[Rfam]
RNA sequence: CCUAUGGAGAGUACAGGAACUUGUGAGUAGAUUGAUAUUUAUAUUAUCAAAAGCAUACUCGUUGAAGUAGGAA
Number, nucleotide and partner (000 for none) at each position: 001c071002c070003u069004a068005u067006g000007g000008a000009g060010a059011g058012u057013a056014c000015a000016g000017g000018a000019a000020c000021u000022u055023g054024u053025g000026a000027g000028u000029a000030g048031a047032u046033u000034g000035a044036u043037a000038u000039u000040u000041a000042u000043a036044u035045u000046a032047u031048c030049a000050a000051a000052a000053g024054c023055a022056u013057a012058c011059u010060c009061g000062u000063u000064g000065a000066a000067g005068u004069a003070g002071g001072a000073a000
Shown here is a 73-nucleotide sequence, a member of the family "RAGATH-18 RNA". About the family: Actinobacteria, Firmicutes, Fusobacteria, Thermotogae (1 example).